[Rfam]
RNA sequence: UUCUUAUCAAGAGUGACGGAGGGAUAGGCCCUAUGAAGUCCGGCAACAGCCCAUAUAUGGGAAAUGUGCUAAAUCCUACAGGUUUAUCCUGAGAGAUGAGAA
Numbered sequence: 001u002u003c004u005u006a007u008c009a010a011g012a013g014u015g016a017c018g019g020a021g022g023g024a025u026a027g028g029c030c031c032u033a034u035g036a037a038g039u040c041c042g043g044c045a046a047c048a049g050c051c052c053a054u055a056u057a058u059g060g061g062a063a064a065u066g067u068g069c070u071a072a073a074u075c076c077u078a079c080a081g082g083u084u085u086a087u088c089c090u091g092a093g094a095g096a097u098g099a100g101a102a
Stems, first nucleotide, its partner, number of pairs: 001102008013041001015040003021031003025078004042070004047066002050061003074094001079091004
A member of the RNA family "SAM riboswitch aptamer (S box leader)" from Clostridium sp. CT7, 102 nucleotides long. Rfam describes the family as follows. The SAM riboswitch is found upstream of a number of genes which code for proteins involved in methionine or cysteine biosynthesis in Gram-positive bacteria. The SAM riboswitch acts at the level of transcription termination control. The predicted structure consists of a complex stem-loop region followed by a single stem loop terminator region. An alternative and mutually exclusive form involves bases in the 3' segment of helix 1 with those in the 5' region of helix 5 to form a structure termed the anti-terminator form. NCBI's taxonomy places the organism under Bacteria, Bacillati, Clostridia, Clostridiaceae, Clostridium.